[Rfam]
RNA sequence: UAAAAAUGGAGCCAGAAACCAUCUUAAACGGGGCAAAACCUGAAAAGCCAUAAGAGUAGGGAACAAA
Numbered sequence: 001u002a003a004a005a006a007u008g009g010a011g012c013c014a015g016a017a018a019c020c021a022u023c024u025u026a027a028a029c030g031g032g033g034c035a036a037a038a039c040c041u042g043a044a045a046a047g048c049c050a051u052a053a054g055a056g057u058a059g060g061g062a063a064c065a066a067a
Stems, first nucleotide, its partner, number of pairs: 006022004032049003039061002
DUF805 RNA: a 67-nucleotide RNA sequence from Flavobacterium sediminis. The family has 46 seed sequences and 281 matches in Rfam 15.1. It is annotated as a cis-regulatory element. Pairs were carried over by alignment from the consensus structure, which is taken from published work.